Source information:
The family of this 132-nucleotide RNA is "Small nucleolar RNA SNORA17". By type it is an H/ACA-box small nucleolar RNA. Clan: SNORA17 clan.
RNA sequence: ACUGCCCCUAGAGGCGUUGCAGCUGUGGCUGCCGUGUCACAUCUGUGUCAUUAGGUGGCAGAGAUUAGAGAGGCUAUGUCUACGCUCAGCGUUCUGCCCCGUGAACGUUUGAAUGUUUGAUAGUCUCACACU
Numbered sequence: 001a002c003u004g005c006c007c008c009u010a011g012a013g014g015c016g017u018u019g020c021a022g023c024u025g026u027g028g029c030u031g032c033c034g035u036g037u038c039a040c041a042u043c044u045g046u047g048u049c050a051u052u053a054g055g056u057g058g059c060a061g062a063g064a065u066u067a068g069a070g071a072g073g074c075u076a077u078g079u080c081u082a083c084g085c086u087c088a089g090c091g092u093u094c095u096g097c098c099c100c101g102u103g104a105a106c107g108u109u110u111g112a113a114u115g116u117u118u119g120a121u122a123g124u125c126u127c128a129c130a131c132u
Stems, first nucleotide, its partner, number of pairs: 002061005007055005013049003019046004024041006068129001070127008082116003086112004090107005

Pairs were carried over by alignment from the consensus structure, which was predicted with RNAalifold. Gene Ontology terms of the family: RNA processing and nucleolus. The family has 53 seed sequences and 5,784 matches in Rfam 15.1. snoRNA ACA 17 belongs to the H/ACA family of snoRNAs and is predicted to guide pseudouridylation of the 28S rRNA at positions U4659 and U4598. It shares the same host gene together with ACA43. NB This family has a high threshold value to exclude a large number of closely related sequences that do not appear to have conserved H and ACA boxes, and may be pseudogenes.